[Rfam]
RNA sequence: GCGCUGGUUUAGCUCAGUGGUUACUUCGAACAAAUUCUAGUUGAAUACUGCUCUCCAUCCCUCCCCGGGAUCGAACCACGGGCGCUGUCCAGUGCUUUU
Numbered sequence: 001g002c003g004c005u006g007g008u009u010u011a012g013c014u015c016a017g018u019g020g021u022u023a024c025u026u027c028g029a030a031c032a033a034a035u036u037c038u039a040g041u042u043g044a045a046u047a048c049u050g051c052u053c054u055c056c057a058u059c060c061c062u063c064c065c066c067g068g069g070a071u072c073g074a075a076c077c078a079c080g081g082g083c084g085c086u087g088u089c090c091a092g093u094g095c096u097u098u099u
Base pairs, nucleotide, nucleotide: 002094003093004092005091006090007089012083013082014081015080017079018078019077020076025075026074027073028072029071